[Rfam]
RNA sequence: CGACUCCCUCCCGGUAAAGGCUAGCCACCAGCCGGAAGCGAGCCUUGCAUGCGAGUGCGGUGACGCACUACUUGAAGCGUAGGCAGCAGGUACCGAAGCCAUGUGAUUGAGCCUCGAGAUAAUCAACUGUUGGUGUCUUCACUUUCCGAACACUGGGGACAGCACUGUGCGAGCCGUAAUGGUGAGGCUCGCCAGACCGACCGGGGUCCGAGAGCA
Numbered sequence: 001c002g003a004c005u006c007c008c009u010c011c012c013g014g015u016a017a018a019g020g021c022u023a024g025c026c027a028c029c030a031g032c033c034g035g036a037a038g039c040g041a042g043c044c045u046u047g048c049a050u051g052c053g054a055g056u057g058c059g060g061u062g063a064c065g066c067a068c069u070a071c072u073u074g075a076a077g078c079g080u081a082g083g084c085a086g087c088a089g090g091u092a093c094c095g096a097a098g099c100c101a102u103g104u105g106a107u108u109g110a111g112c113c114u115c116g117a118g119a120u121a122a123u124c125a126a127c128u129g130u131u132g133g134u135g136u137c138u139u140c141a142c143u144u145u146c147c148g149a150a151c152a153c154u155g156g157g158g159a160c161a162g163c164a165c166u167g168u169g170c171g172a173g174c175c176g177u178a179a180u181g182g183u184g185a186g187g188c189u190c191g192c193c194a195g196a197c198c199g200a201c202c203g204g205g206g207u208c209c210g211a212g213a214g215c216a
Stems, first nucleotide, its partner, number of pairs: 011035004019029002022185001024183002038087002042084004046079002048074002051071001054069006108210001109208001111207006129201006135160003140155002143152001165195003169192007

Shown here is a 216-nucleotide RNA sequence from Paraburkholderia sp. BL23I1N1, a member of the family "Group II catalytic intron D1-D4-6". The pairing is the family consensus, mapped onto this sequence. Lineage of the source: Bacteria > Betaproteobacteria > Burkholderiales > Burkholderiaceae > Paraburkholderia. Its family is annotated with Group II intron splicing in the Gene Ontology.